[Rfam]
RNA sequence: AUUUCAACAUGAACGGCUAAAUUCGCCACGUCCUGUGGCGAUACCGUUCUAGUCUCAACUUGAGCC
Numbered sequence: 001a002u003u004u005c006a007a008c009a010u011g012a013a014c015g016g017c018u019a020a021a022u023u024c025g026c027c028a029c030g031u032c033c034u035g036u037g038g039c040g041a042u043a044c045c046g047u048u049c050u051a052g053u054c055u056c057a058a059c060u061u062g063a064g065c066c
Stems, first nucleotide, its partner, number of pairs: 011049006025039005052066001054064003
About this RNA
The family of this 66-nucleotide RNA sequence from Lederbergia galactosidilytica is "Bacillaceae-1 RNA". Rfam classes the family as a small RNA. It scores 41 bits against the family's covariance model.